[Rfam]
RNA sequence: AAACAGAUACACAACUGGCGGAGACAGCAUUGGCAGAAGAUGCUGUGUAGGAGCACCUACAGGGAGUGUAUGACGAGUUAGAAGCCGACCGCCUGGGCCCAUGAA
Numbered sequence: 001a002a003a004c005a006g007a008u009a010c011a012c013a014a015c016u017g018g019c020g021g022a023g024a025c026a027g028c029a030u031u032g033g034c035a036g037a038a039g040a041u042g043c044u045g046u047g048u049a050g051g052a053g054c055a056c057c058u059a060c061a062g063g064g065a066g067u068g069u070a071u072g073a074c075g076a077g078u079u080a081g082a083a084g085c086c087g088a089c090c091g092c093c094u095g096g097g098c099c100c101a102u103g104a105a
Base pairs, nucleotide, nucleotide: 007071008070009069010068011067012066015063016062017093018092019091020090021089048059049058050057051056084098085097086096
The record is a 105-nucleotide RNA sequence from Lachnospiraceae bacterium A4, which matches "ZMP/ZTP riboswitch aptamer (pfl RNA motif)" in Rfam. Its family is annotated with one-carbon metabolic process and regulation of purine nucleotide biosynthetic process in the Gene Ontology. NCBI's taxonomy places the organism under Bacteria, Bacillati, Clostridia, Lachnospirales, Lachnospiraceae.